[Rfam]
RNA sequence: UCCGUCCUUGUCAUGGGGUGAGGGAGCUGCUCAGUGAACGUAUAGUGAGAGCAGCCCUGCUGACACCAUAACAACACCUACGCAUCACCUGGACUUCUGUCUGGGACAUGGUGCAAUUUUUGGAAAC
Number, nucleotide and partner (000 for none) at each position: 001u000002c000003c000004g000005u000006c018007c017008u016009u015010g000011u000012c000013a000014u000015g009016g008017g007018g006019u000020g060021a000022g058023g057024g000025a000026g055027c054028u053029g052030c051031u050032c049033a000034g000035u000036g000037a000038a046039c045040g000041u000042a000043u000044a000045g039046u038047g000048a000049g032050a031051g030052c029053a028054g027055c026056c000057c023058u022059g000060c020061u000062g000063a000064c000065a000066c000067c000068a000069u000070a000071a000072c000073a000074a000075c000076a000077c000078c000079u000080a000081c000082g114083c113084a112085u111086c110087a109088c105089c104090u000091g102092g101093a100094c099095u000096u000097c000098u000099g094100u093101c092102u091103g000104g089105g088106a000107c000108a000109u087110g086111g085112u084113g083114c082115a000116a000117u000118u000119u000120u000121u000122g000123g000124a000125a000126a000127c000
RNA: U4atac minor spliceosomal RNA